Source information: The family of this 82-nucleotide RNA sequence from Cephalotus follicularis is "mir-395 microRNA precursor family". On this family, see Jones-Rhoades and Bartel, Mol Cell 2004: "Computational Identification of Plant MicroRNAs and Their Targets, Including a Stress-Induced miRNA". mir-395 was identified in both Arabidopsis thaliana and Oryza sativa computationally and was later experimentally verified. mir-395 is thought to target mRNAs coding for ATP sulphurylases. The mature sequence is excised from the 3' arm of the hairpin. Rfam 15.1 lists 2,798 matches to the family in 234 species. The source organism's lineage runs through Eukaryota, Viridiplantae, Embryophyta, Gunneridae and Cephalotus. Rfam links the family to the GO terms RISC complex and miRNA-mediated post-transcriptional gene silencing.
RNA sequence: UUUUCCCCUGGAGUUCCCUUGAGCACUUCAUUGGGGUUAUCCUGUACCCUACUGAAGUGUUUGGGGGAACUCUGGGUGCCAC
Dot-bracket structure: ....(.(((.((((((((((.(((((((((.((((((........)))))).))))))).)))))))))))).))).)....